MIR390 microRNA precursor family: a 97-nucleotide sequence from Rhodamnia argentea. It scores 90 bits against the family's covariance model. Pairs were carried over by alignment from the consensus structure, which was predicted with WAR. The source organism's lineage runs through Eukaryota, eudicotyledons, Gunneridae, Myrtoideae and Rhodamnia. For this family Rfam cites "Computational prediction of miRNAs in Arabidopsis thaliana" (Adai et al., Genome Res, 2005).
RNA sequence: GAGAAGAAUCUGUCAAGCUCAGGAGGGAUAGCGCCGAUGGAUUCGACAGCCGUCAGCUUUCCGGCGCUAUCCAUCCUGAGUUUCAUGGCUUCUUUUU
Number, nucleotide and partner (000 for none) at each position: 001g000002a000003g000004a000005a000006g000007a000008a000009u000010c088011u000012g000013u000014c000015a000016a082017g081018c080019u079020c078021a077022g076023g075024a074025g000026g072027g071028a070029u069030a068031g067032c066033g065034c064035c063036g000037a000038u000039g000040g000041a000042u000043u000044c000045g000046a000047c000048a000049g000050c000051c000052g000053u000054c000055a000056g000057c000058u000059u000060u000061c000062c000063g035064g034065c033066g032067c031068u030069a029070u028071c027072c026073a000074u024075c023076c022077u021078g020079a019080g018081u017082u016083u000084c000085a000086u000087g000088g010089c000090u000091u000092c000093u000094u000095u000096u000097u000